[Rfam]
RNA sequence: AUUAGUAGAAGCAUUAGUUAGGUGAGAAUCCUAACCGCCGCAGGGGCUAGGUUUCCUCGACAAUGUUCGUCAGUCGAGGGUUAGUCGGUCCUAAGUUAUACCGUAACUCGAGUAUAGCGAAAGGGAAACAGGUUAAUAUUCCUGUACCAUCUGUCAAUAAUCCUGACGCUUCGGGAUAUGCCUUGCAGGGUAGUCGCCCUGUUUAAGCGUAUAAGCCUUUGGAGAACCGUAAUGGUGAGAAUUAGGUGAAAUCGUGAUGAGUAAUUAAGGCGCAUUCCUGGAGCCCGUGAAAAGGGGACAAGAUGACCGUACCGAGAUCUGACACAGGUGCCCCUAGCUGAGUAGGCUAAGGCGUGU
Numbered sequence: 001a002u003u004a005g006u007a008g009a010a011g012c013a014u015u016a017g018u019u020a021g022g023u024g025a026g027a028a029u030c031c032u033a034a035c036c037g038c039c040g041c042a043g044g045g046g047c048u049a050g051g052u053u054u055c056c057u058c059g060a061c062a063a064u065g066u067u068c069g070u071c072a073g074u075c076g077a078g079g080g081u082u083a084g085u086c087g088g089u090c091c092u093a094a095g096u097u098a099u100a101c102c103g104u105a106a107c108u109c110g111a112g113u114a115u116a117g118c119g120a121a122a123g124g125g126a127a128a129c130a131g132g133u134u135a136a137u138a139u140u141c142c143u144g145u146a147c148c149a150u151c152u153g154u155c156a157a158u159a160a161u162c163c164u165g166a167c168g169c170u171u172c173g174g175g176a177u178a179u180g181c182c183u184u185g186c187a188g189g190g191u192a193g194u195c196g197c198c199c200u201g202u203u204u205a206a207g208c209g210u211a212u213a214a215g216c217c218u219u220u221g222g223a224g225a226a227c228c229g230u231a232a233u234g235g236u237g238a239g240a241a242u243u244a245g246g247u248g249a250a251a252u253c254g255u256g257a258u259g260a261g262u263a264a265u266u267a268a269g270g271c272g273c274a275u276u277c278c279u280g281g282a283g284c285c286c287g288u289g290a291a292a293a294g295g296g297g298a299c300a301a302g303a304u305g306a307c308c309g310u311a312c313c314g315a316g317a318u319c320u321g322a323c324a325c326a327g328g329u330g331c332c333c334c335u336a337g338c339u340g341a342g343u344a345g346g347c348u349a350a351g352g353c354g355u356g357u
Stems, first nucleotide, its partner, number of pairs: 017035006036354004044333004050313002055079006064072002086309003090124002095118006102110002128145005148305004152300003162296003168284009179272005185202005207255003216246003226236003319328002335349004

Source information:
Archaeal large subunit ribosomal RNA: a 357-nucleotide part of an RNA from Methanolacinia petrolearia. The family is grouped with related families in Rfam's "LSU clan". Rfam 15.1 lists 2,955 matches to the family in 1,139 species. On this family, see Cannone et al., BMC Bioinformatics 2002: "The comparative RNA web (CRW) site: an online database of comparative sequence and structure information for ribosomal, intron, and other RNAs". Taxonomically the source falls in Methanolacinia petrolearia (Archaea, Methanobacteriati, Methanomicrobiaceae, Methanolacinia).